Glutamine riboswitch aptamer (glnA leader): a 55-nucleotide RNA sequence.
RNA sequence: UUCGUUCAUCUAUCUAGACGGAAGUAGGAUUAAAAUUUAUCCGAAGGAACGCAUU
Dot-bracket structure: ..(((((.(((....)))..[.....(((..........)))....)))))]...